[Rfam]
RNA sequence: CAGAGUUACAGCUCUUUUAGAAUUUGUCUAGCAGGUUUUCUGGUUUUUACCAGGUAAUCCCUU
Numbered sequence: 001c002a003g004a005g006u007u008a009c010a011g012c013u014c015u016u017u018u019a020g021a022a023u024u025u026g027u028c029u030a031g032c033a034g035g036u037u038u039u040c041u042g043g044u045u046u047u048u049a050c051c052a053g054g055u056a057a058u059c060c061c062u063u
Stems, first nucleotide, its partner, number of pairs: 034060002037057002040054002042051003
U7 small nuclear RNA: a 63-nucleotide RNA sequence from Propithecus coquereli. Taxonomically the source falls in Propithecus (Eukaryota, Gnathostomata, Eutheria, Lemuriformes). On this family, see Spycher et al., Nucleic Acids Res 1994: "3' end processing of mouse histone pre-mRNA: evidence for additional base-pairing between U7 snRNA and pre-mRNA".